Nucleotides: 067
Base pairs, nucleotide, nucleotide: 006061007060009058010057011056012055022050023049024048025047027045028044029043030042031041032040033039
Number, partner (000 for none) and nucleotide at each position: 001000u002000g003000u004000g005000c006061g007060g008000g009058c010057c011056g012055g013000g014000c015000c016000c017000c018000u019000c020000u021000g022050g023049c024048g025047u026000c027045g028044g029043c030042g031041g032040a033039a034000u035000u036000c037000u038000g039033u040032u041031c042030c043029g044028c045027c046000c047025a048024c049023g050022u051000g052000a053000u054000g055012u056011c057010g058009g059000a060007c061006c062000g063000c064000a065000u066000c067000g
This 67-nucleotide sequence from Sphingopyxis sp. QXT-31 belongs to the Rfam family "terC RNA". Taxonomically the source falls in Sphingopyxis (Bacteria, Pseudomonadati, Sphingomonadales, Sphingopyxidaceae).